[Rfam]
RNA: small nucleolar RNA snoR143
RNA sequence: UUGCACCUUUUGUCUGAUGGUGUCCGCAGAUUUUUAUGGCGAGACCUCUAGUUACGGUGCAUAAAGAAAAAGUUGUUUUACAGCAGCGGCCAGACAACCGUAGAUGAAUCCACAGACGUAUGGUUAUUUUUGUAUGUUUAUGUCUACUGAUUUCAUCUCAAAUUU
Numbered sequence: 001u002u003g004c005a006c007c008u009u010u011u012g013u014c015u016g017a018u019g020g021u022g023u024c025c026g027c028a029g030a031u032u033u034u035u036a037u038g039g040c041g042a043g044a045c046c047u048c049u050a051g052u053u054a055c056g057g058u059g060c061a062u063a064a065a066g067a068a069a070a071a072g073u074u075g076u077u078u079u080a081c082a083g084c085a086g087c088g089g090c091c092a093g094a095c096a097a098c099c100g101u102a103g104a105u106g107a108a109u110c111c112a113c114a115g116a117c118g119u120a121u122g123g124u125u126a127u128u129u130u131u132g133u134a135u136g137u138u139u140a141u142g143u144c145u146a147c148u149g150a151u152u153u154c155a156u157c158u159c160a161a162a163u164u165u
Base pairs, nucleotide, nucleotide: 002061003060004059005058006057014051015050016049019046020045021044023042024041027038028037102158103157104156105155106154107153108152120141121140122139123138125136